[Rfam]
RNA sequence: UGGAGGACUGAGAAGGUAAGACAGUUAAACUUUAUGCUGUAUCUUACCGGUUAUAGCCUCCAAAAUUACAAUAGUGCAAUAGCAACGCAUGUUCCCCUUCUGACAUGAGGGAAAGCAGCACUGCCAUUUG
Numbered sequence: 001u002g003g004a005g006g007a008c009u010g011a012g013a014a015g016g017u018a019a020g021a022c023a024g025u026u027a028a029a030c031u032u033u034a035u036g037c038u039g040u041a042u043c044u045u046a047c048c049g050g051u052u053a054u055a056g057c058c059u060c061c062a063a064a065a066u067u068a069c070a071a072u073a074g075u076g077c078a079a080u081a082g083c084a085a086c087g088c089a090u091g092u093u094c095c096c097c098u099u100c101u102g103a104c105a106u107g108a109g110g111g112a113a114a115g116c117a118g119c120a121c122u123g124c125c126a127u128u129u130g
Base pairs, nucleotide, nucleotide: 002061003060004059005058006057015048016047017046018045019042021040022039023038024037025036086130087129089127090126091125098120100118101117104115
Dot-bracket structure: .(((((........(((((.(((((..........))))).)..))))........)))))........................((.(((......(.((..(..........).)).)....))).))